The family of this 108-nucleotide RNA sequence from Carboxylicivirga sediminis is "Bacteroidales small SRP".
Its Rfam clan is "SRP clan".
NCBI's taxonomy places the organism under Bacteria, Pseudomonadati, Bacteroidia, Marinilabiliales, Carboxylicivirga.
For this family Rfam cites "A high-resolution transcriptome map identifies small RNA regulation of metabolism in the gut microbe Bacteroides thetaiotaomicron" (Ryan et al., Nat Commun, 2020).
Pairs were carried over by alignment from the consensus structure, which is taken from published work.
[Rfam]
RNA sequence: UAAACACGGGUAAGUCCCAUACGACUAGCUCCUGUUGAAUUCCCCCAGGGCCUGGCGGCAGCAAGGGUAGACGGUUGUAGCAGUGCGAUAUGGGUAGCUUACCCACCU
Numbered sequence: 001u002a003a004a005c006a007c008g009g010g011u012a013a014g015u016c017c018c019a020u021a022c023g024a025c026u027a028g029c030u031c032c033u034g035u036u037g038a039a040u041u042c043c044c045c046c047a048g049g050g051c052c053u054g055g056c057g058g059c060a061g062c063a064a065g066g067g068u069a070g071a072c073g074g075u076u077g078u079a080g081c082a083g084u085g086c087g088a089u090a091u092g093g094g095u096a097g098c099u100u101a102c103c104c105a106c107c108u
Stems, first nucleotide, its partner, number of pairs: 008104008017093005022087002024084002